[Rfam]
RNA sequence: CAACAACCGAAAGGAGGUGAUCCAGUGUCUCAUUGUUUGACGAAGGUUUCGCACGGAUCGACCUGGGCCCUCGCUGUUUCCAACGAGAUGGCGGCCUGACCUAGCGGUUCGGCCUCAACCCUUCAGACAAUGGAAGGCCUCGGGGGGCGACCCCCGGGGCCU
Number, nucleotide and partner (000 for none) at each position: 001c000002a000003a000004c000005a000006a000007c000008c000009g000010a000011a000012a000013g000014g000015a000016g023017g022018u000019g000020a000021u000022c017023c016024a000025g000026u000027g000028u000029c000030u000031c132032a131033u130034u129035g128036u127037u126038u000039g000040a000041c000042g000043a000044a064045g063046g000047u000048u000049u061050c060051g059052c000053a000054c000055g000056g000057a000058u000059c051060g050061a049062c000063c045064u044065g071066g070067g000068c000069c000070c066071u065072c093073g092074c091075u088076g000077u087078u086079u085080c000081c000082a000083a000084c000085g079086a078087g077088a075089u000090g000091g074092c073093g072094g000095c000096c000097u000098g000099a000100c000101c000102u000103a000104g000105c000106g000107g000108u000109u000110c000111g000112g000113c000114c000115u000116c000117a000118a000119c000120c000121c000122u000123u000124c000125a000126g037127a036128c035129a034130a033131u032132g031133g000134a000135a162136g161137g160138c159139c158140u157141c156142g155143g154144g153145g152146g151147g000148c000149g000150a000151c146152c145153c144154c143155c142156g141157g140158g139159g138160c137161c136162u135
Rfam assigns this 162-nucleotide RNA sequence from Lichenicoccus roseus to the family "caulobacter sRNA CC2171".
The family's consensus secondary structure was predicted with RNAalifold.
A search with the family's covariance model found it, with a score of 79 bits.
On this family, see Landt et al., Mol Microbiol 2008: "Small non-coding RNAs in Caulobacter crescentus".
By type it is a small RNA.